Rhizobiales sRNA Atu_C9: a 196-nucleotide RNA from Phyllobacterium sp. YR531. By type it is a small RNA. For this family Rfam cites "Deep sequencing uncovers numerous small RNAs on all four replicons of the plant pathogen Agrobacterium tumefaciens" (Wilms et al., RNA Biol, 2012). A search with the family's covariance model found it, with a score of 48 bits. The family's consensus secondary structure was predicted with WAR.

RNA sequence: GGUUAACUGCAGGAGACAAGCGAUGGGACUAACUCGAUCGAUGAAUGUCCUUAUGAUCUGUGCAGCGUUCGCAUUUAUUGGUGCAAUGGUCGUAGGACUGAUACCUUGAAUUGAAAUAUGAGCGCUACGGAGAUGGUCUCUGACCGUUAAGCGAUGAAACAAAAUGAAACGGCCCGGUUAAAGCAACCGGGCCGUU
Dot-bracket structure: ..............((((........((.........))......))))......................................................................................................................((((((((((((.....))))))))))))
Numbered sequence: 001g002g003u004u005a006a007c008u009g010c011a012g013g014a015g016a017c018a019a020g021c022g023a024u025g026g027g028a029c030u031a032a033c034u035c036g037a038u039c040g041a042u043g044a045a046u047g048u049c050c051u052u053a054u055g056a057u058c059u060g061u062g063c064a065g066c067g068u069u070c071g072c073a074u075u076u077a078u079u080g081g082u083g084c085a086a087u088g089g090u091c092g093u094a095g096g097a098c099u100g101a102u103a104c105c106u107u108g109a110a111u112u113g114a115a116a117u118a119u120g121a122g123c124g125c126u127a128c129g130g131a132g133a134u135g136g137u138c139u140c141u142g143a144c145c146g147u148u149a150a151g152c153g154a155u156g157a158a159a160c161a162a163a164a165u166g167a168a169a170c171g172g173c174c175c176g177g178u179u180a181a182a183g184c185a186a187c188c189g190g191g192c193c194g195u196u
Stems, first nucleotide, its partner, number of pairs: 015049004027039002168196012